[Rfam]
RNA sequence: AACUGAUGUUCCUCUUCAGAACGAAUAAAUCUUUCGCCUUUUACUAAAGAUUUCCGUGGAGGGGAACAUAUCAUCAGUAUGAAUGCAUUUGUGGAGCCUGACUCAAGUCGGGU
Numbered sequence: 001a002a003c004u005g006a007u008g009u010u011c012c013u014c015u016u017c018a019g020a021a022c023g024a025a026u027a028a029a030u031c032u033u034u035c036g037c038c039u040u041u042u043a044c045u046a047a048a049g050a051u052u053u054c055c056g057u058g059g060a061g062g063g064g065a066a067c068a069u070a071u072c073a074u075c076a077g078u079a080u081g082a083a084u085g086c087a088u089u090u091g092u093g094g095a096g097c098c099u100g101a102c103u104c105a106a107g108u109c110g111g112g113u
Stems, first nucleotide, its partner, number of pairs: 003077004008067011027053008095113001097112006

This 113-nucleotide RNA from Brachionus calyciflorus belongs to the Rfam family "U5 spliceosomal RNA". It scores 90 bits against the family's covariance model. Rfam classes the family as a spliceosomal small nuclear RNA. Rfam describes the family as follows. U5 RNA is a component of both types of known spliceosome. A reference for the family is Zwieb (1997), "The uRNA database", Nucleic Acids Res. Its family is annotated with spliceosomal tri-snRNP complex assembly and U5 snRNP in the Gene Ontology.